[Rfam]
RNA sequence: GUCGAGCUUGGUAAUGUGAGCUUGUAACCCAUAUGGGAGCAACGAAGUGGUUGGAAGUUUGCUCAACCCAUUAUUAGUUAGGGUUGUUGGAGUUGUUCUUUGGCCUGUCCACCCUAAGUAGGGAGUUGGGCUAUGGGCUUUUUAGGCGAAGGCCCAGUAUCCAUGGUCCUUAGAGUCGAAGGAAAUCGUCUGAGGCUAGUUUAACAGAGCAAUGUAACCCUCCGCUCUUGCUGGUAGAAGGAUAGCGGGUUGAUUCUCUUAGGCCCAAUAUAAAUCUUUGGGUAGUUCUCAGCUUGACAUCCACUUUU
Dot-bracket structure: ((.(((((((......)))))))....(((....))).))...(((((((.((..((.(((..(.((.(...(..(.((.((((((...(((..(....(((((((((((...(((.(..((((((.((((((((((..((...(((....))).))..))))))))))(....)..(.(((.....((.(....((........))....).))...)))).))))))..)..)))..))...)))))))))).))).))).))).....)).).)...))).)....))).))..)).))))))).

Rfam assigns this 308-nucleotide sequence from Cucurbita maxima to the family "Plant signal recognition particle RNA". Taxonomically the source falls in Cucurbita (Eukaryota, Viridiplantae, eudicotyledons, Pentapetalae). Its family is annotated with signal recognition particle, endoplasmic reticulum targeting and SRP-dependent cotranslational protein targeting to membrane, signal sequence recognition in the Gene Ontology. Clan: SRP clan.